[Rfam]
RNA sequence: UCCAGAUAUGGUGACAUGGUGCCCAAAACCAUAGCAGGGAAGAUUUUUGGUUCCAUCUGUUCACUGAGUGGGGUCCUGGUUAUUGCACUACCUGUUCCAGUGAUUGUUUCCAAC
Numbered sequence: 001u002c003c004a005g006a007u008a009u010g011g012u013g014a015c016a017u018g019g020u021g022c023c024c025a026a027a028a029c030c031a032u033a034g035c036a037g038g039g040a041a042g043a044u045u046u047u048u049g050g051u052u053c054c055a056u057c058u059g060u061u062c063a064c065u066g067a068g069u070g071g072g073g074u075c076c077u078g079g080u081u082a083u084u085g086c087a088c089u090a091c092c093u094g095u096u097c098c099a100g101u102g103a104u105u106g107u108u109u110c111c112a113a114c
Stems, first nucleotide, its partner, number of pairs: 001113001005110001008107004014101002018097002021095002037077004050062001
The record is a 114-nucleotide RNA sequence from Orycteropus afer, which matches "Potassium channel RNA editing signal" in Rfam.
The match comes from Rfam's covariance-model search (79 bits).
The family's RNA type in Rfam is cis-regulatory element.
Rfam 15.1 lists 14,095 matches to the family in 1,000 species.